A member of the RNA family "Burkholderia RNA 7 (anti-hemB)" from Azoarcus olearius, 92 nucleotides long. Gene Ontology terms of the family: bacterial biofilm matrix and protein binding. The family has 26 seed sequences and 479 matches in Rfam 15.1. It is annotated as a small RNA. Taxonomically the source falls in Azoarcus (Bacteria, Pseudomonadati, Betaproteobacteria, Zoogloeaceae).
[Rfam]
Nucleotides: 092
Stems, first nucleotide, its partner, number of pairs: 004026006028048007055083008
Number, partner (000 for none) and nucleotide at each position: 001000u002000c003000u004026c005025c006024c007023g008022c009021u010000u011000c012000a013000c014000c015000u016000c017000c018000c019000u020000g021009a022008g023007c024006g025005g026004g027000u028048g029047c030046c031045u032044u033043g034042a035000c036000c037000c038000c039000c040000u041000g042034u043033c044032a045031a046030g047029g048028c049000a050000u051000u052000u053000c054000a055083c056082c057081c058080c059079c060078g061077g062076c063000u064000u065000c066000a067000u068000c069000c070000c071000c072000u073000u074000u075000g076062g077061c078060c079059g080058g081057g082056g083055g084000u085000u086000u087000u088000u089000g090000u091000a092000u